This 80-nucleotide RNA sequence from Propithecus coquereli belongs to the Rfam family "mir-147 microRNA precursor family". Gene Ontology terms of the family: RISC complex and miRNA-mediated post-transcriptional gene silencing. NCBI's taxonomy places the organism under Eukaryota, Opisthokonta, Teleostomi, Amniota, Propithecus.
RNA sequence: CCUGACUCUAGAGGAAACAUUUCUGCACACACACCAGACUAUUGAAACCAGCGUGUGGAAAUGCUUCUGCUGCGUUCUUA
Numbered sequence: 001c002c003u004g005a006c007u008c009u010a011g012a013g014g015a016a017a018c019a020u021u022u023c024u025g026c027a028c029a030c031a032c033a034c035c036a037g038a039c040u041a042u043u044g045a046a047a048c049c050a051g052c053g054u055g056u057g058g059a060a061a062u063g064c065u066u067c068u069g070c071u072g073c074g075u076u077c078u079u080a
Stems, first nucleotide, its partner, number of pairs: 004077002007074001009072003013068004018063011032051001